[Rfam]
RNA sequence: UCUUGAGGGGAGUAGUCGCCCUUCCGCGAUGGAAGGGGCGCACGUCAACAUCCUUGACCGAUCGGUCAUGGCGUGCGCGGCUUGUGGCUUGACGAGACUUUGGACUCGAUGGAGUGUCCGGCUGGGGCUGGGCGCGCUC
Dot-bracket structure: ...................(((...........))).((((((((((.......(((((....))))))))))))))).............................................................
Numbered sequence: 001u002c003u004u005g006a007g008g009g010g011a012g013u014a015g016u017c018g019c020c021c022u023u024c025c026g027c028g029a030u031g032g033a034a035g036g037g038g039c040g041c042a043c044g045u046c047a048a049c050a051u052c053c054u055u056g057a058c059c060g061a062u063c064g065g066u067c068a069u070g071g072c073g074u075g076c077g078c079g080g081c082u083u084g085u086g087g088c089u090u091g092a093c094g095a096g097a098c099u100u101u102g103g104a105c106u107c108g109a110u111g112g113a114g115u116g117u118c119c120g121g122c123u124g125g126g127g128c129u130g131g132g133c134g135c136g137c138u139c
Stems, first nucleotide, its partner, number of pairs: 020036003038078010055068005
Shown here is a 139-nucleotide RNA sequence from Allochromatium vinosum, a member of the family "Manganese Mn2+ riboswitch aptamer (yybP-ykoY)". A search with the family's covariance model found it, with a score of 66 bits. This RNA was originally discovered in E. coli during a large scale screen and was named SraF. The family was later found to exist upstream of related families of protein genes in many bacteria, including the the yybP and ykoK genes in B. subtilis. The specific functions of these proteins are unknown, but this structured RNA element may be involved in their genetic regulation as a riboswitch. The pairing is the family consensus, mapped onto this sequence. NCBI's taxonomy places the organism under Bacteria, Pseudomonadati, Pseudomonadota, Gammaproteobacteria, Allochromatium vinosum.